[Rfam]
RNA sequence: GAUUUAUACAGAAGCGUGGAGAGACAGGCUCUUUGAAGCGCUAGCAACCACCUCUAAUAUUAGAGAAAGGUGCUAAAUCCUGAUCCCAAAGGAUGUCGAGUGACAUUCGGGAGAAUAUAAAUU
Numbered sequence: 001g002a003u004u005u006a007u008a009c010a011g012a013a014g015c016g017u018g019g020a021g022a023g024a025c026a027g028g029c030u031c032u033u034u035g036a037a038g039c040g041c042u043a044g045c046a047a048c049c050a051c052c053u054c055u056a057a058u059a060u061u062a063g064a065g066a067a068a069g070g071u072g073c074u075a076a077a078u079c080c081u082g083a084u085c086c087c088a089a090a091g092g093a094u095g096u097c098g099a100g101u102g103a104c105a106u107u108c109g110g111g112a113g114a115a116u117a118u119a120a121a122u123u
Stems, first nucleotide, its partner, number of pairs: 001123008013042005021031003025082004043074004048070002052065003078115001084112004
A member of the RNA family "SAM riboswitch aptamer (S box leader)" from Roseivirga misakiensis, 123 nucleotides long. The base pairs follow the family's consensus structure, which is taken from published work. The organism belongs to Roseivirga, within Bacteria.